[Rfam]
RNA: UnaL2 LINE 3' element
Organism: Carassius auratus
RNA sequence: CAAGACUUCAUCUGUAAGUCGCUUUGGAUAAAAGCGUCUGCUAAAUGAAUACAU
Dot-bracket structure: ............((((...((((((.....))))))..))).)...........
Numbered sequence: 001c002a003a004g005a006c007u008u009c010a011u012c013u014g015u016a017a018g019u020c021g022c023u024u025u026g027g028a029u030a031a032a033a034g035c036g037u038c039u040g041c042u043a044a045a046u047g048a049a050u051a052c053a054u
Stems, first nucleotide, its partner, number of pairs: 013043001014041003020036006